[Rfam]
This 243-nucleotide sequence from Tissierella praeacuta belongs to the Rfam family "T-box leader".
Rfam classes the family as a cis-regulatory leader.
The base pairs follow the family's consensus structure, which is taken from published work.
The organism belongs to Tissierella praeacuta, within Bacteria.
Rfam's curators write: Uncharged tRNA acts as the effector for transcription antitermination of genes in the T-box leader family. T-boxes are found upstream of many aminoacyl-tRNA synthetase genes and some amino acid biosynthetic genes usually in Gram-positive bacteria. The anticodon of a specific tRNA base pairs to a specifier sequence within the T-box motif, and the NCCA acceptor tail of the tRNA base pairs to a conserved bulge in the T-box antiterminator hairpin.
Nucleotides: 243
Base pairs, nucleotide, nucleotide: 007104008103015099016098017097018096026088027087028086029085031083039076040075041074050073051072052071053070054069055068107136110133112131113130138150139149140148191204192203193202194201195200209240210239211238212237220236221235222234223233224232
Number, partner (000 for none) and nucleotide at each position: 001000a002000u003000a004000a005000a006000u007104u008103c009000g010000a011000a012000g013000a014000c015099a016098a017097a018096g019000a020000a021000g022000a023000g024000u025000a026088g027087u028086u029085a030000a031083u032000u033000c034000u035000u036000a037000u038000c039076u040075u041074u042000c043000a044000c045000a046000g047000a048000g049000a050073g051072c052071u053070a054069a055068a056000g057000a058000u059000u060000g061000g062000u063000g064000g065000g066000a067000c068055u069054u070053u071052g072051g073050c074041a075040a076039a077000g078000a079000u080000g081000g082000a083031a084000c085029u086028a087027a088026u089000g090000a091000a092000u093000g094000g095000a096018c097017u098016u099015u100000g101000u102000a103008g104007a105000a106000g107136c108000u109000g110133g111000u112131g113130g114000a115000a116000a117000u118000c119000u120000a121000u122000a123000g124000a125000g126000a127000g128000u129000a130113c131112c132000c133110c134000g135000u136107g137000c138150c139149g140148g141000a142000a143000g144000c145000c146000u147000a148140c149139c150138g151000u152000u153000a154000a155000c156000u157000a158000a159000g160000g161000a162000c163000a164000g165000g166000a167000u168000a169000u170000g171000u172000u173000a174000g175000u176000a177000u178000c179000c180000c181000a182000u183000u184000a185000a186000g187000a188000g189000a190000g191204a192203u193202g194201c195200a196000u197000u198000u199000u200195u201194g202193c203192a204191u205000a206000a207000u208000u209240u210239a211238g212237g213000u214000g215000g216000c217000a218000c219000c220236g221235c222234g223233a224232a225000u226000u227000c228000a229000a230000c231000c232224u233223u234222c235221g236220u237212c238211c239210u240209a241000u242000u243000g